[Rfam]
RNA sequence: GAGAUCAAGGGUCAACGUCCGCCGGCGAUGGUUCGCUCACGGGCGAUUUUGUG
Numbered sequence: 001g002a003g004a005u006c007a008a009g010g011g012u013c014a015a016c017g018u019c020c021g022c023c024g025g026c027g028a029u030g031g032u033u034c035g036c037u038c039a040c041g042g043g044c045g046a047u048u049u050u051g052u053g
Base pairs, nucleotide, nucleotide: 016045017044018043019042020041021040025036026035027034028033
Shown here is a 53-nucleotide RNA from a Parvibaculaceae bacterium, a member of the family "ffh sRNA". Pairs were carried over by alignment from the consensus structure, which is taken from published work. By type it is a small RNA.